Source information:
The family of this 104-nucleotide sequence from Sulfitobacter brevis is "Vibrio RNA AS9". From the family's description: Identified by direct cloning an parallel sequencing experiments with 5S/tRNA depletion. For this family Rfam cites "Experimental discovery of sRNAs in Vibrio cholerae by direct cloning, 5S/tRNA depletion and parallel sequencing" (Liu et al., Nucleic Acids Res, 2009). It is annotated as an antisense RNA.
RNA sequence: AUGGUCAAUCCGGUCCGAGGUCAUCGGCAAGCAGAUCAAUCCGCGCCCAUAAGUGGCCAUAAAAUUGAUCGCAGCCGCAUCGGCAAACUCGGCCGCAAUGACCA
Numbered sequence: 001a002u003g004g005u006c007a008a009u010c011c012g013g014u015c016c017g018a019g020g021u022c023a024u025c026g027g028c029a030a031g032c033a034g035a036u037c038a039a040u041c042c043g044c045g046c047c048c049a050u051a052a053g054u055g056g057c058c059a060u061a062a063a064a065u066u067g068a069u070c071g072c073a074g075c076c077g078c079a080u081c082g083g084c085a086a087a088c089u090c091g092g093c094c095g096c097a098a099u100g101a102c103c104a
Base pairs, nucleotide, nucleotide: 003058004057005056006055007054010027011026012025013024014023035050036049041045066104067103069101070100071096072095074093075092076091077090080086